The record is a 136-nucleotide RNA sequence from Keratinibaculum paraultunense, which matches "Ribosomal protein L10 leader" in Rfam.

RNA sequence: UUGUUAAUUAAAUAGGCACCGUAGACAGUAGGAACCUAUUGGUUUAAAAUUAUCCUACCGAGGUGAGAUCGGAAAUAAAUUAUUUUGAGAUUAAAGGUCUCUCCAUGUCUACGGAGAGACCUUUAUUUGUUAUAGC
Number, nucleotide and partner (000 for none) at each position: 001u000002u000003g000004u000005u000006a000007a000008u000009u000010a000011a000012a000013u000014a000015g000016g000017c000018a000019c000020c000021g000022u000023a000024g000025a000026c000027a000028g058029u057030a056031g055032g054033a053034a043035c042036c041037u000038a000039u000040u000041g036042g035043u034044u000045u000046a000047a000048a000049a000050u000051u000052a000053u033054c032055c031056u030057a029058c028059c000060g000061a000062g000063g000064u000065g000066a000067g000068a000069u000070c000071g000072g000073a000074a000075a000076u000077a000078a000079a000080u000081u000082a000083u000084u000085u000086u000087g000088a000089g000090a000091u000092u000093a000094a000095a000096g121097g120098u119099c118100u117101c116102u115103c114104c113105a000106u000107g000108u000109c000110u000111a000112c000113g104114g103115a102116g101117a100118g099119a098120c097121c096122u000123u000124u000125a000126u000127u000128u000129g000130u000131u000132a000133u000134a000135g000136c000
A reference for the family is Zengel and Lindahl (1994), "Diverse mechanisms for regulating ribosomal protein synthesis in Escherichia coli", Prog Nucleic Acid Res Mol Biol.
By type it is a cis-regulatory leader.
Rfam's curators write: This family is a putative r-protein leader autoregulatory structure found in B. subtilis and other low-GC Gram-positive bacteria. It is located in the 5' untranslated regions of mRNAs encoding ribosomal proteins L10 and L12 (rplJ-rplL). A Rho-independent transcription terminator structure that is probably involved in regulation is included at the 3' end.